[Rfam]
RNA sequence: CAAGCAUCUAUCAAUGCUACAUCAGUCAUUAAAUUACAUGGAUUUUUAGUGUAAAUUUCAUUGCGCAACAUGAAAUCCAAAGGGGAAGGUGGGCAGUUGUACUUCAUCCACCUGUUGAAAUUUCAACUAUUAUCUUCCCCAUAUUC
Numbered sequence: 001c002a003a004g005c006a007u008c009u010a011u012c013a014a015u016g017c018u019a020c021a022u023c024a025g026u027c028a029u030u031a032a033a034u035u036a037c038a039u040g041g042a043u044u045u046u047u048a049g050u051g052u053a054a055a056u057u058u059c060a061u062u063g064c065g066c067a068a069c070a071u072g073a074a075a076u077c078c079a080a081a082g083g084g085g086a087a088g089g090u091g092g093g094c095a096g097u098u099g100u101a102c103u104u105c106a107u108c109c110a111c112c113u114g115u116u117g118a119a120a121u122u123u124c125a126a127c128u129a130u131u132a133u134c135u136u137c138c139c140c141a142u143a144u145u146c
Stems, first nucleotide, its partner, number of pairs: 001063002006043006082140011096127004
RNA: small nucleolar RNA snoR135